Notes
The record is a 316-nucleotide RNA from Cyanobium gracile, which matches "Cyanobacteria transfer-messenger RNA" in Rfam. It is annotated as a non-coding RNA gene.
RNA sequence: GUGGCAGGAUGAACAGGCUCGUCUUCGGACGAACUAGGUGGUCCACACCAGUGUCUCGGACAGCGGUUCGAUUCCGCUCAGCUCCAUUCCCCCGACCCACCGCCCCGCAGGCGGUGCGUCAUCCCGGGGCUGCAAUGGUUUCGACGGGGCAUGAGGAGGGUGACUGAAGCCUGCUCGGUCAGAGCGAACCCGUAACAGCGAACAACAUCGUUCGUUUCUCCCGUCAAGCCGCCCCCGUGGCUGCCUGACACUCUUAACGGAGACGGGGUGAGGUCAGCCUUGUCACCCAAAUGACCCAUGGGGCCUGGAAGGGCCC
Numbered sequence: 001g002u003g004g005c006a007g008g009a010u011g012a013a014c015a016g017g018c019u020c021g022u023c024u025u026c027g028g029a030c031g032a033a034c035u036a037g038g039u040g041g042u043c044c045a046c047a048c049c050a051g052u053g054u055c056u057c058g059g060a061c062a063g064c065g066g067u068u069c070g071a072u073u074c075c076g077c078u079c080a081g082c083u084c085c086a087u088u089c090c091c092c093c094g095a096c097c098c099a100c101c102g103c104c105c106c107g108c109a110g111g112c113g114g115u116g117c118g119u120c121a122u123c124c125c126g127g128g129g130c131u132g133c134a135a136u137g138g139u140u141u142c143g144a145c146g147g148g149g150c151a152u153g154a155g156g157a158g159g160g161u162g163a164c165u166g167a168a169g170c171c172u173g174c175u176c177g178g179u180c181a182g183a184g185c186g187a188a189c190c191c192g193u194a195a196c197a198g199c200g201a202a203c204a205a206c207a208u209c210g211u212u213c214g215u216u217u218c219u220c221c222c223g224u225c226a227a228g229c230c231g232c233c234c235c236c237g238u239g240g241c242u243g244c245c246u247g248a249c250a251c252u253c254u255u256a257a258c259g260g261a262g263a264c265g266g267g268g269u270g271a272g273g274u275c276a277g278c279c280u281u282g283u284c285a286c287c288c289a290a291a292u293g294a295c296c297c298a299u300g301g302g303g304c305c306u307g308g309a310a311g312g313g314c315c316c
Base pairs, nucleotide, nucleotide: 017034019032020031021030022029023028037165038164039163041161042160043159044158048156049155051152052151053150054149055148056147057146058145062078063077064076065075066074079132080131081130082129083128084127085126172186173185174184175183176182227246228245231241232240233239259288260287262284263283264282265281266280267279268278269277301316302315303314304313305312306311

Source information
Rfam's curators write: Bacterial tmRNA, also known as 10Sa RNA or SsrA, is named for its dual tRNA and mRNA-like properties. A reference for the family is Williams and Bartel (1996), "Phylogenetic analysis of tmRNA secondary structure", RNA.